Shown here is a 91-nucleotide sequence from Denticeps clupeoides, a member of the family "mir-15 microRNA precursor family". The source organism's lineage runs through Eukaryota, Opisthokonta, Deuterostomia, Clupeocephala and Denticeps. From the family's description: This family represents the related mir-15a and mir-15b sequences. In humans miR-15a and miR-16 are clustered within 0.5 kb at 13q14. This region has been shown to be deleted in more than half of B cell chronic lymphocytic leukaemias (CLL). Both miR-15a and miR-16 are deleted or down-regulated in more than two thirds of CLL cases. The mature sequence is excised from the 5' arm of the hairpin.

[Rfam]
Nucleotides: 091
Base pairs, nucleotide, nucleotide: 001091002090003089004088015077016076017075018074019073020072021071022070023069026065027064028063029062030061031060032059033058035056036055
Number, partner (000 for none) and nucleotide at each position: 001091u002090c003089c004088u005000u006000c007000c008000a009000c010000g011000c012000u013000u014000u015077a016076g017075c018074a019073g020072c021071a022070u023069g024000u025000a026065a027064a028063u029062a030061u031060u032059g033058g034000u035056g036055u037000g038000u039000g040000u041000g042000a043000a044000a045000a046000c047000a048000g049000a050000g051000c052000c053000c054000a055036a056035c057000c058033c059032c060031a061030a062029u063028a064027u065026u066000a067000u068000u069023u070022g071021u072020g073019c074018u075017g076016c077015u078000u079000c080000a081000g082000u083000g084000u085000g086000a087000c088004a089003g090002g091001a
For this family Rfam cites "Identification of novel genes coding for small expressed RNAs" (Lagos-Quintana et al., Science, 2001).